[Rfam]
RNA sequence: UAUCUUUUAUCGCUUAAUUCGUAAGAAGCGGGGGAACCACUUUUGUGGCCAGUAUUGCCACUUGGGGUGAAUCCUUUUUUGAAGGUAGGGUUACUCUCAUACCCGAAUCCGACAGCUAACCUCGUAAGCGUUCUGGGAGAGGAGUG
Numbered sequence: 001u002a003u004c005u006u007u008u009a010u011c012g013c014u015u016a017a018u019u020c021g022u023a024a025g026a027a028g029c030g031g032g033g034g035a036a037c038c039a040c041u042u043u044u045g046u047g048g049c050c051a052g053u054a055u056u057g058c059c060a061c062u063u064g065g066g067g068u069g070a071a072u073c074c075u076u077u078u079u080u081g082a083a084g085g086u087a088g089g090g091u092u093a094c095u096c097u098c099a100u101a102c103c104c105g106a107a108u109c110c111g112a113c114a115g116c117u118a119a120c121c122u123c124g125u126a127a128g129c130g131u132u133c134u135g136g137g138a139g140a141g142g143a144g145u146g
Stems, first nucleotide, its partner, number of pairs: 011130004018027003028125006038064002065110003073085004088104004
Dot-bracket structure: ..........((((...(((....)))((((((....((.......................))(((.....((((.....))))..((((.........))))...))).........)))))).))))................
Notes:
Shown here is a 146-nucleotide RNA sequence from Heyndrickxia sporothermodurans, a member of the family "c-di-AMP riboswitch aptamer (ydaO/yuaA leader)". Lineage of the source: Bacteria > Bacillota > Bacilli > Bacillaceae > Heyndrickxia. The pairing is the family consensus, mapped onto this sequence. The match comes from Rfam's covariance-model search (107 bits).